[Rfam]
RNA: Bacteroidetes FopS (family of paralogous sRNAs)
RNA sequence: GUGUUUUUCAUGGUAUUAGAUUUAAGGUUAACGAAGAUUGGUUGUCGAGAUGACAACCUUUUCUUUUUAU
Numbered sequence: 001g002u003g004u005u006u007u008u009c010a011u012g013g014u015a016u017u018a019g020a021u022u023u024a025a026g027g028u029u030a031a032c033g034a035a036g037a038u039u040g041g042u043u044g045u046c047g048a049g050a051u052g053a054c055a056a057c058c059u060u061u062u063c064u065u066u067u068u069a070u
Stems, first nucleotide, its partner, number of pairs: 040058007